[Rfam]
RNA: Small Cajal body specific RNA 11
Organism: Jaculus jaculus
Nucleotides: 141
Stems, first nucleotide, its partner, number of pairs: 001060004007055002021051001025047006080135004086128004092122004097117002099114004104109001
Number, partner (000 for none) and nucleotide at each position: 001060u002059u003058u004057u005000c006000u007055u008054u009000u010000u011000c012000u013000u014000u015000u016000u017000u018000u019000c020000u021051g022000c023000u024000c025047c026046u027045c028044u029043g030042u031000g032000c033000c034000u035000a036000g037000c038000u039000c040000u041000a042030a043029c044028a045027g046026g047025g048000u049000c050000a051021u052000c053000u054008g055007a056000c057004a058003g059002g060001g061000c062000a063000c064000a065000c066000a067000u068000a069000c070000u071000g072000c073000g074000g075000u076000u077000u078000c079000c080135c081134u082133c083132u084000c085000a086128g087127u088126u089125u090000a091000g092122g093121a094120g095119g096000c097117c098116u099114g100113u101112c102111c103000u104109a105000g106000g107000g108000g109104u110000u111102g112101g113100a114099c115000u116098g117097g118000c119095u120094c121093u122092u123000a124000a125089a126088g127087g128086c129000a130000c131000a132083a133082g134081a135080g136000a137000a138000c139000a140000a141000u